[Rfam]
RNA sequence: UAAGUGUUAUAUGACUGACGGACGCGUGGCGCGCCUGAAUCUUAAGUAUCCCGCUCACAAGAGCAGGACGCACGCCGCGCAGUGGAGUAACCACAGGGAGUAUAACCGUAAGAAGCCGACCGUCUGGGCGAGUCUG
Number, nucleotide and partner (000 for none) at each position: 001u000002a000003a109004g000005u000006g106007u105008u104009a103010u102011a101012u100013g000014a000015c097016u096017g124018a123019c122020g121021g120022a000023c000024g000025c000026g000027u000028g000029g000030c000031g000032c000033g000034c000035c000036u000037g000038a000039a000040u000041c000042u000043u000044a000045a000046g000047u000048a000049u000050c000051c000052c000053g000054c000055u000056c000057a000058c000059a000060a000061g000062a000063g000064c000065a000066g000067g000068a000069c000070g000071c000072a000073c000074g000075c000076c000077g000078c000079g000080c000081a000082g094083u093084g092085g091086a000087g000088u000089a000090a000091c085092c084093a083094c082095a000096g016097g015098g000099a000100g012101u011102a010103u009104a008105a007106c006107c000108g000109u003110a000111a000112g000113a000114a000115g129116c128117c127118g000119a000120c021121c020122g019123u018124c017125u000126g000127g117128g116129c115130g000131a000132g000133u000134c000135u000136g000
RNA: ZMP/ZTP riboswitch aptamer (pfl RNA motif)
Organism: Alloscardovia macacae